[Rfam]
This 134-nucleotide RNA sequence from Castor canadensis belongs to the Rfam family "Small nucleolar RNA SNORA51". Its family is annotated with nucleolus and RNA processing in the Gene Ontology. Rfam 15.1 lists 2,121 matches to the family in 210 species. Rfam's curators write: ACA51 is a member of the H/ACA class of snoRNA that guide the sites of modification of uridines to pseudouridines. The organism belongs to Castor, within Eukaryota. A search with the family's covariance model found it, with a score of 87 bits.

RNA sequence: GGCCUCCUGGUGCUUACCACAGGCUGUGCUCCUAACAUUGACUAUACAGAUAAAGAGGUGUAAAAGUAAACCUACCCCACAUGCACUUCAACCAGGCCCUGUGGUUGGUCUGUAUUGGGAGUGGGAAGACAUGA
Numbered sequence: 001g002g003c004c005u006c007c008u009g010g011u012g013c014u015u016a017c018c019a020c021a022g023g024c025u026g027u028g029c030u031c032c033u034a035a036c037a038u039u040g041a042c043u044a045u046a047c048a049g050a051u052a053a054a055g056a057g058g059u060g061u062a063a064a065a066g067u068a069a070a071c072c073u074a075c076c077c078c079a080c081a082u083g084c085a086c087u088u089c090a091a092c093c094a095g096g097c098c099c100u101g102u103g104g105u106u107g108g109u110c111u112g113u114a115u116u117g118g119g120a121g122u123g124g125g126a127a128g129a130c131a132u133g134a
Stems, first nucleotide, its partner, number of pairs: 004060001006058003021043002026038003076125005089112002093108001095106004